[Rfam]
RNA sequence: CAAUGGCUGGAGCCCUUUAAACCUGGCUCAUUUGGUACCAGGGGGACCCUCUGGGGGCCAGGUUUAAAGGGCACCAGCCAUUG
Numbered sequence: 001c002a003a004u005g006g007c008u009g010g011a012g013c014c015c016u017u018u019a020a021a022c023c024u025g026g027c028u029c030a031u032u033u034g035g036u037a038c039c040a041g042g043g044g045g046a047c048c049c050u051c052u053g054g055g056g057g058c059c060a061g062g063u064u065u066a067a068a069g070g071g072c073a074c075c076a077g078c079c080a081u082u083g
Base pairs, nucleotide, nucleotide: 003082005079006078007077008076009075010074012072013071014070015069016068017067018066019065022062023061024060025059026058027057028056029055
Source information:
A member of the RNA family "mir-130 microRNA precursor family" from Phrynocephalus forsythii, 83 nucleotides long. The match comes from Rfam's covariance-model search (42 bits). Rfam links the family to the GO terms miRNA-mediated post-transcriptional gene silencing and RISC complex. On this family, see Houbaviy et al., Dev Cell 2003: "Embryonic stem cell-specific MicroRNAs".